Source information
A member of the RNA family "Eukaryotic small subunit ribosomal RNA" from Babesia sp. Xinjiang, 483 nucleotides of a longer RNA. Rfam links the family to the GO terms ribosome and structural constituent of ribosome. Lineage of the source: Eukaryota > Alveolata > Aconoidasida > Babesiidae > Babesia. Its Rfam clan is "SSU clan".

RNA sequence: CAGUUAAAAAGCUCGUAGUUGAAUUUCAGCGUUGUUUUCGUGUUCCCUUUUUGCGGGUUUCGUCUACUUCGCUUUUUUUUAUUACUUUGAGAAAAUUAGAGUGUUUCAAGCAGGCUUUUGUCUUGAAUACUUGAGCAUGGAAUAAUAGAGUAGGACCUUGGUUCUUCUUUGUUGGUUUUUGUUACCUUGGUAAUGGUUAAUAGGAACGGUUGGGGGCAUUCGUAUUUAACUGUCAGAGGUGAAAUUCUUAGAUUUGUUAAAGACGAACUACUGCGAAAGCAUUUGCCAAGGACGUUUCCAUUAAUCAAGAACGAAAGUUAGGGGAUCGAAGACGAUCAGAUACCGUCGUAGUCCUAACCAUAAACUAUGCCGACUAGGGAUUGGAGGUCGUCAUUUUUCUUCGACUCCUUCAGCACCUUGAGAGAAAUCAAAGUCUUUGGGUUCUGGGGGGAGUAUGGUCGCAAGUCUGAAACUUAAAGGAAU
Numbered sequence: 001c002a003g004u005u006a007a008a009a010a011g012c013u014c015g016u017a018g019u020u021g022a023a024u025u026u027c028a029g030c031g032u033u034g035u036u037u038u039c040g041u042g043u044u045c046c047c048u049u050u051u052u053g054c055g056g057g058u059u060u061c062g063u064c065u066a067c068u069u070c071g072c073u074u075u076u077u078u079u080u081a082u083u084a085c086u087u088u089g090a091g092a093a094a095a096u097u098a099g100a101g102u103g104u105u106u107c108a109a110g111c112a113g114g115c116u117u118u119u120g121u122c123u124u125g126a127a128u129a130c131u132u133g134a135g136c137a138u139g140g141a142a143u144a145a146u147a148g149a150g151u152a153g154g155a156c157c158u159u160g161g162u163u164c165u166u167c168u169u170u171g172u173u174g175g176u177u178u179u180u181g182u183u184a185c186c187u188u189g190g191u192a193a194u195g196g197u198u199a200a201u202a203g204g205a206a207c208g209g210u211u212g213g214g215g216g217c218a219u220u221c222g223u224a225u226u227u228a229a230c231u232g233u234c235a236g237a238g239g240u241g242a243a244a245u246u247c248u249u250a251g252a253u254u255u256g257u258u259a260a261a262g263a264c265g266a267a268c269u270a271c272u273g274c275g276a277a278a279g280c281a282u283u284u285g286c287c288a289a290g291g292a293c294g295u296u297u298c299c300a301u302u303a304a305u306c307a308a309g310a311a312c313g314a315a316a317g318u319u320a321g322g323g324g325a326u327c328g329a330a331g332a333c334g335a336u337c338a339g340a341u342a343c344c345g346u347c348g349u350a351g352u353c354c355u356a357a358c359c360a361u362a363a364a365c366u367a368u369g370c371c372g373a374c375u376a377g378g379g380a381u382u383g384g385a386g387g388u389c390g391u392c393a394u395u396u397u398u399c400u401u402c403g404a405c406u407c408c409u410u411c412a413g414c415a416c417c418u419u420g421a422g423a424g425a426a427a428u429c430a431a432a433g434u435c436u437u438u439g440g441g442u443u444c445u446g447g448g449g450g451g452a453g454u455a456u457g458g459u460c461g462c463a464a465g466u467c468u469g470a471a472a473c474u475u476a477a478a479g480g481a482a483u
Stems, first nucleotide, its partner, number of pairs: 001446003009443001011312001013310002018305003203299004207294002210291002215287004221265002225261006232254001236247003273280002317358006327351001331347004369442003372435003376418003381413007390405003422429002448475003457468002460465001